[Rfam]
Nucleotides: 083
Stems, first nucleotide, its partner, number of pairs: 010077009020067001022065003027060007035052002
Number, partner (000 for none) and nucleotide at each position: 001000c002000g003000a004000u005000g006000g007000c008000a009000u010077u011076u012075g013074g014073u015072u016071u017070u018069a019000g020067a021000a022065u023064u024063c025000c026000u027060a028059c029058g030057c031056u032055u033054u034000a035052c036051c037000g038000u039000a040000a041000a042000a043000u044000u045000u046000u047000a048000u049000c050000a051036g052035g053000c054033a055032a056031a057030g058029c059028g060027u061000u062000u063024g064023a065022a066000u067020u068000g069018u070017a071016a072015a073014a074013c075012c076011g077010a078000a079000c080000a081000u082000u083000g
The family of this 83-nucleotide RNA from Sipha flava is "mir-927 microRNA precursor family".
On this family, see Berezikov et al., Nat Genet 2010: "Evolutionary flux of canonical microRNAs and mirtrons in Drosophila".
The organism belongs to Sipha, within Eukaryota.
Rfam links the family to the GO terms RISC complex and miRNA-mediated post-transcriptional gene silencing.